[Rfam]
RNA sequence: GUGCAUCAACACCUUGGCUCUAGACUGCUUACUGCUAAGGGUGCUCGAAAGUACAGUAACAGUCUACAGUCAUGGCUACUGAUGCUUG
Numbered sequence: 001g002u003g004c005a006u007c008a009a010c011a012c013c014u015u016g017g018c019u020c021u022a023g024a025c026u027g028c029u030u031a032c033u034g035c036u037a038a039g040g041g042u043g044c045u046c047g048a049a050a051g052u053a054c055a056g057u058a059a060c061a062g063u064c065u066a067c068a069g070u071c072a073u074g075g076c077u078a079c080u081g082a083u084g085c086u087u088g
Stems, first nucleotide, its partner, number of pairs: 012075002015072004023064005029059005

Annotation: Rfam assigns this 88-nucleotide RNA from Scleropages formosus to the family "mir-132 microRNA precursor family". Rfam links the family to the GO terms RISC complex and miRNA-mediated post-transcriptional gene silencing. The base pairs follow the family's consensus structure, which was predicted with RNAalifold.